Overview:
This 83-nucleotide RNA sequence from Danio rerio belongs to the Rfam family "mir-15 microRNA precursor family". The source organism's lineage runs through Eukaryota, Euteleostomi, Cyprinoidei, Danioninae and Danio. The family's consensus secondary structure was predicted with RNAalifold. The sequence is in the family's curated seed alignment. This family represents the related mir-15a and mir-15b sequences. In humans miR-15a and miR-16 are clustered within 0.5 kb at 13q14. This region has been shown to be deleted in more than half of B cell chronic lymphocytic leukaemias (CLL). Both miR-15a and miR-16 are deleted or down-regulated in more than two thirds of CLL cases.
RNA sequence: UGCCUGACAGAAGCAGCACAUCAAUAUUGGCAGCUGCCCUCUCUCUGGGUUGCCAGUAUGGUUUGUGCUGCUCCCGUCAGACA
Numbered sequence: 001u002g003c004c005u006g007a008c009a010g011a012a013g014c015a016g017c018a019c020a021u022c023a024a025u026a027u028u029g030g031c032a033g034c035u036g037c038c039c040u041c042u043c044u045c046u047g048g049g050u051u052g053c054c055a056g057u058a059u060g061g062u063u064u065g066u067g068c069u070g071c072u073c074c075c076g077u078c079a080g081a082c083a
Stems, first nucleotide, its partner, number of pairs: 001083002010074001012072009024059010